[Rfam]
HDV ribozyme from F. prausnitzii: a 71-nucleotide RNA sequence.
Rfam's curators put it in the seed alignment.
The base pairs follow the family's consensus structure, which is taken from published work.
On this family, see Webb et al., Science 2009: "Widespread occurrence of self-cleaving ribozymes".
RNA sequence: ACUGCACAAAACCAACAGCCUUCACGCGGCGUGCAGUGAGCAACGUAUAGUUUUAUACGGCCAAUGUUGAA
Number, nucleotide and partner (000 for none) at each position: 001a037002c036003u035004g034005c033006a032007c031008a000009a000010a000011a000012c000013c000014a000015a000016c000017a000018g030019c029020c028021u000022u000023c000024a000025c000026g000027c000028g020029g019030c018031g007032u006033g005034c004035a003036g002037u001038g000039a000040g000041c000042a000043a000044c059045g058046u057047a056048u055049a000050g000051u000052u000053u000054u000055a048056u047057a046058c045059g044060g000061c000062c000063a000064a000065u000066g000067u000068u000069g000070a000071a000